[Rfam]
RNA sequence: GCUGCCGGGCGAGGCGCUCUCCUCCAGGUCGCUCUGGCAGCCUUCGUCGUUAAGCGAGCCCUGCUUGGGCACCUUGGGGGAGAGCAGCUUAGCCAGGUCGGGCAGC
Numbered sequence: 001g002c003u004g005c006c007g008g009g010c011g012a013g014g015c016g017c018u019c020u021c022c023u024c025c026a027g028g029u030c031g032c033u034c035u036g037g038c039a040g041c042c043u044u045c046g047u048c049g050u051u052a053a054g055c056g057a058g059c060c061c062u063g064c065u066u067g068g069g070c071a072c073c074u075u076g077g078g079g080g081a082g083a084g085c086a087g088c089u090u091a092g093c094c095a096g097g098u099c100g101g102g103c104a105g106c
Stems, first nucleotide, its partner, number of pairs: 001106004006097001009094001011090003016085003020081002022078003026074004032068002036065005043058005
The family of this 106-nucleotide sequence from Thamnophis sirtalis is "mir-2968 microRNA precursor family". NCBI's taxonomy places the organism under Eukaryota, Eumetazoa, Chordata, Sauria, Thamnophis. Pairs were carried over by alignment from the consensus structure, which is taken from published work. On this family, see Gunaratne et al., BMC Genomics 2011: "Song exposure regulates known and novel microRNAs in the zebra finch auditory forebrain". Rfam links the family to the GO terms miRNA-mediated post-transcriptional gene silencing and RISC complex.